[Rfam]
Nucleotides: 073
Stems, first nucleotide, its partner, number of pairs: 001073005007067002010065006016055003029052006037044002
Number, partner (000 for none) and nucleotide at each position: 001073g002072c003071c004070a005069c006000g007067g008066c009000u010065u011064c012063c013062u014061g015060c016055g017054c018053c019000c020000c021000c022000g023000a024000u025000c026000g027000g028000g029052g030051c031050c032049g033048c034047c035000a036000a037044c038043a039000g040000c041000g042000c043038u044037g045000g046000c047034g048033g049032c050031g051030g052029c053018g054017g055016c056000g057000g058000a059000g060015g061014c062013g063012g064011g065010g066008g067007c068000a069005g070004u071003g072002g073001c

Description:
Rfam assigns this 73-nucleotide RNA sequence from Mus musculus to the family "mir-3960 microRNA precursor family". The family's consensus secondary structure was predicted with RNAalifold.